[Rfam]
RNA sequence: GCAACCUGAAGUUGGCGCAUGGCAAUGUGGUGGUGUUCCGCUCGCUGCUGGGCAUCAGCUGGAUGUGGUUCUUUGGCGCGGUGUUUCUGAGCCAGUUCCCCAGCUUUGCCAAGGAGGUGCUG
Numbered sequence: 001g002c003a004a005c006c007u008g009a010a011g012u013u014g015g016c017g018c019a020u021g022g023c024a025a026u027g028u029g030g031u032g033g034u035g036u037u038c039c040g041c042u043c044g045c046u047g048c049u050g051g052g053c054a055u056c057a058g059c060u061g062g063a064u065g066u067g068g069u070u071c072u073u074u075g076g077c078g079c080g081g082u083g084u085u086u087c088u089g090a091g092c093c094a095g096u097u098c099c100c101c102a103g104c105u106u107u108g109c110c111a112a113g114g115a116g117g118u119g120c121u122g
Base pairs, nucleotide, nucleotide: 010049011048012047014045017041018040021037022036023035024034026032051121052120053119054118055117059113060112062110063105067099068098071095072094077089078088080087081086
RNA: Burkholderia RNA 11